[Rfam]
RNA sequence: UGGUGCUCCUGAUGUCCCAUCCCUGAAGAUCCCAGGUGGGCGAGGGACUAGUCAGCGGGAUC
Dot-bracket structure: ......((((.....((((((......[[[[[[.))))))..))))..........]]]]]]
This 62-nucleotide RNA sequence from Octodon degus belongs to the Rfam family "Antizyme RNA frameshifting stimulation element".
About the family: This family represents a structural element which is found in antizyme mRNA and is known to promote frameshifting. Antizyme genes have have two partially overlapping open reading frames, the second, which encodes the functional protein requires +1 translational frameshifting.
The family's RNA type in Rfam is frameshift element.
Rfam links the family to the GO term translational frameshifting.